[Rfam]
RNA sequence: AUACUUACCUGCCACGGAUACAUUCACGAUCACCAACGUGGAUGUUCCAGGUGGAGAUGUGAGCAUUGCACAUUGCUCGUGUUGAAGCCUGCGAGGAGUCCACAUCGGAUUUUGUCGAGUGGAUAAUUUAUUACGCGGUCAUUUGCGUUCGCGCACUGACCAU
Numbered sequence: 001a002u003a004c005u006u007a008c009c010u011g012c013c014a015c016g017g018a019u020a021c022a023u024u025c026a027c028g029a030u031c032a033c034c035a036a037c038g039u040g041g042a043u044g045u046u047c048c049a050g051g052u053g054g055a056g057a058u059g060u061g062a063g064c065a066u067u068g069c070a071c072a073u074u075g076c077u078c079g080u081g082u083u084g085a086a087g088c089c090u091g092c093g094a095g096g097a098g099u100c101c102a103c104a105u106c107g108g109a110u111u112u113u114g115u116c117g118a119g120u121g122g123a124u125a126a127u128u129u130a131u132u133a134c135g136c137g138g139u140c141a142u143u144u145g146c147g148u149u150c151g152c153g154c155a156c157u158g159a160c161c162a163u
Base pairs, nucleotide, nucleotide: 012122013121014120015119016048017047018046023042024041025040026039027038049090050089051088052087056083057082058081060079061078062077063076064075092117093116094115095113096111097110099108100107137161138160139159140158144155145154146153147152
Shown here is a 163-nucleotide RNA from Rotaria sp. Silwood2, a member of the family "U1 spliceosomal RNA". Pairs were carried over by alignment from the consensus structure, which is taken from published work. The family's RNA type in Rfam is spliceosomal small nuclear RNA. U1 is a small nuclear RNA (snRNA) component of the spliceosome (involved in pre-mRNA splicing). Its 5' end forms complementary base pairs with the 5' splice junction, thus defining the 5' donor site of an intron. There are significant differences in sequence and secondary structure between metazoan and yeast U1 snRNAs, the latter being much longer (568 nucleotides as compared to 164 nucleotides in human). Nevertheless, secondary structure predictions suggest that all U1 snRNAs share a 'common core' consisting of helices I, II, the proximal region of III, and IV. This family does not contain the larger yeast sequences. A search with the family's covariance model found it, with a score of 102 bits. On this family, see Oubridge et al., Nature 1994: "Crystal structure at 1.92 A resolution of the RNA-binding domain of the U1A spliceosomal protein complexed with an RNA hairpin". The organism belongs to Rotaria, within Eukaryota.